[Rfam]
RNA: MIR2912 microRNA precursor family
Organism: Populus tomentosa
RNA sequence: UCUAGAACUCGAGAUAUGGGCUGAACAGUGUCCAGGCUACAGGACAGCUUCAGACUUCUCUGUUGUUGCAAAAAUUUGGACUUGAAAAAUGCCUUUUUAAAUCUUGGACUCCACAUGAAAGUUUUAGGCCUAUGUCUUAGCUUUACAUC
Numbered sequence: 001u002c003u004a005g006a007a008c009u010c011g012a013g014a015u016a017u018g019g020g021c022u023g024a025a026c027a028g029u030g031u032c033c034a035g036g037c038u039a040c041a042g043g044a045c046a047g048c049u050u051c052a053g054a055c056u057u058c059u060c061u062g063u064u065g066u067u068g069c070a071a072a073a074a075u076u077u078g079g080a081c082u083u084g085a086a087a088a089a090u091g092c093c094u095u096u097u098u099a100a101a102u103c104u105u106g107g108a109c110u111c112c113a114c115a116u117g118a119a120a121g122u123u124u125u126a127g128g129c130c131u132a133u134g135u136c137u138u139a140g141c142u143u144u145a146c147a148u149c
Stems, first nucleotide, its partner, number of pairs: 003147001006144002008140002011138010021127005027122001028116003035111002038108001041105004047098001053092001055091001061085001065081003